A member of the RNA family "TPP riboswitch aptamer (THI element)" from Corallococcus coralloides, 113 nucleotides long. Taxonomically the source falls in Corallococcus coralloides (Bacteria, Myxococcia, Cystobacterineae, Myxococcaceae).
Nucleotides: 113
Base pairs, nucleotide, nucleotide: 006101007100008099009098010097011063012062013061014060016057017032018031019030020029021028039056040055041054042053043052044051045050069094070093071092075088076087077086078085
Number, partner (000 for none) and nucleotide at each position: 001000c002000g003000c004000a005000g006101u007100c008099g009098c010097u011063a012062g013061g014060g015000g016057u017032g018031c019030c020029u021028c022000c023000g024000g025000a026000a027000g028021g029020g030019g031018g032017c033000u034000g035000a036000g037000a038000c039056g040055g041054a042053c043052g044051c045050g046000u047000g048000g049000c050045c051044g052043c053042g054041u055040c056039c057016g058000a059000u060014c061013c062012c063011u064000u065000u066000g067000a068000a069094c070093c071092u072000g073000a074000a075088c076087c077086g078085g079000u080000u081000a082000g083000u084000a085078c086077c087076g088075g089000c090000g091000g092071a093070g094069g095000g096000a097010a098009g099008c100007g101006g102000u103000g104000u105000g106000g107000g108000c109000g110000c111000u112000c113000c